Rfam assigns this 31-nucleotide sequence from Pundamilia nyererei to the family "Iron response element II". IRE, TFRC, SLC40A1, SDHB, SLC11A2, CDC42BPA, ACO2, ALAS2_H.SAPIENS, CDC14A, EPAS1, ALAS2, qoxD, Hao1, NDUFS1, transferrin, Aconitate. The match comes from Rfam's covariance-model search (31 bits). On this family, see Gunshin et al., FEBS Lett 2001: "Iron-dependent regulation of the divalent metal ion transporter". The family has 30 seed sequences and 5,197 matches in Rfam 15.1. Taxonomically the source falls in Pundamilia (Eukaryota, Neoteleostei, Cichlomorphae, Cichlidae).
RNA sequence: GCAUUAUCGGGAGCAGUGCCUUCCAUAACUA
Numbered sequence: 001g002c003a004u005u006a007u008c009g010g011g012a013g014c015a016g017u018g019c020c021u022u023c024c025a026u027a028a029c030u031a
Stems, first nucleotide, its partner, number of pairs: 004028004009024005014018001